[Rfam]
RNA sequence: CGGAACGUGUGCGCCCACUCCGCCGGCUCGCCGAGCAGGGCGUCGGCGCCGAAGAAGCCGCCGCCGUCGCGGACGCCGACCCGGCCGGCGGCGUCGUAGGCGCCGGGGGCGCUCUCCUCGACCUUGCCGUGCGCGAUCAGGUGGACCGCGUCGAGGGGCCCGCCCGACUCCGCGAUCACCUCGCCGGGCUCGUACUCGCGCUGCUCGAACCGCGCGGCGAGACCGUCCAGGAUCGCGGGGUCGGACAGGCCGCGCAGCGGCGGCAGCUCGGCCAGUUCGGGCGGGACGACCCGGAUCGCCGCGCCGUCGUUGACGAACGUCACGAUCCCGUCGCCGAGCCGGUAGGUGAGCCGGCGGUUCACCCGGUAGGCGCCGCCGGAGGCCUCCACCCACGGCAGUCGCGACAGCAGCCACCGCGGGGUGACGCCCUGCGUCUGCGGAACGGUCUUGGUCGUCGAGGCGAGGUUGCGUGCGGCGCGGGUGGAGAGGGCCAGCCGUUCCUCCGUCACG
Numbered sequence: 001c002g003g004a005a006c007g008u009g010u011g012c013g014c015c016c017a018c019u020c021c022g023c024c025g026g027c028u029c030g031c032c033g034a035g036c037a038g039g040g041c042g043u044c045g046g047c048g049c050c051g052a053a054g055a056a057g058c059c060g061c062c063g064c065c066g067u068c069g070c071g072g073a074c075g076c077c078g079a080c081c082c083g084g085c086c087g088g089c090g091g092c093g094u095c096g097u098a099g100g101c102g103c104c105g106g107g108g109g110c111g112c113u114c115u116c117c118u119c120g121a122c123c124u125u126g127c128c129g130u131g132c133g134c135g136a137u138c139a140g141g142u143g144g145a146c147c148g149c150g151u152c153g154a155g156g157g158g159c160c161c162g163c164c165c166g167a168c169u170c171c172g173c174g175a176u177c178a179c180c181u182c183g184c185c186g187g188g189c190u191c192g193u194a195c196u197c198g199c200g201c202u203g204c205u206c207g208a209a210c211c212g213c214g215c216g217g218c219g220a221g222a223c224c225g226u227c228c229a230g231g232a233u234c235g236c237g238g239g240g241u242c243g244g245a246c247a248g249g250c251c252g253c254g255c256a257g258c259g260g261c262g263g264c265a266g267c268u269c270g271g272c273c274a275g276u277u278c279g280g281g282c283g284g285g286a287c288g289a290c291c292c293g294g295a296u297c298g299c300c301g302c303g304c305c306g307u308c309g310u311u312g313a314c315g316a317a318c319g320u321c322a323c324g325a326u327c328c329c330g331u332c333g334c335c336g337a338g339c340c341g342g343u344a345g346g347u348g349a350g351c352c353g354g355c356g357g358u359u360c361a362c363c364c365g366g367u368a369g370g371c372g373c374c375g376c377c378g379g380a381g382g383c384c385u386c387c388a389c390c391c392a393c394g395g396c397a398g399u400c401g402c403g404a405c406a407g408c409a410g411c412c413a414c415c416g417c418g419g420g421g422u423g424a425c426g427c428c429c430u431g432c433g434u435c436u437g438c439g440g441a442a443c444g445g446u447c448u449u450g451g452u453c454g455u456c457g458a459g460g461c462g463a464g465g466u467u468g469c470g471u472g473c474g475g476c477g478c479g480g481g482u483g484g485a486g487a488g489g490g491c492c493a494g495c496c497g498u499u500c501c502u503c504c505g506u507c508a509c510g
Stems, first nucleotide, its partner, number of pairs: 007389003011385001014382002021324002026321001028316002036312003040308001045305005051299001057227001060226002063223001065111004075103001077102002080099001082096004117221004122217002126213002129210002131206001133204003140197001143196002149192002158189005164183001166177001231296001233294002237290001240287003246283001251281001253279002256277003261270002328342003351379007360372001362370002391431002394428003399423001400421001402418002405416001407415001437476002440473001442471003447465003451461002477509001480504002484500003488496001

Overview:
Rfam assigns this 510-nucleotide RNA sequence from Actinomadura coerulea to the family "Saccharopolyspora sRNA 350". It is annotated as an antisense RNA. The organism belongs to Actinomadura, within Bacteria. The family's consensus secondary structure was predicted with RNAfold. Gene Ontology term of the family: regulation of secondary metabolite biosynthetic process.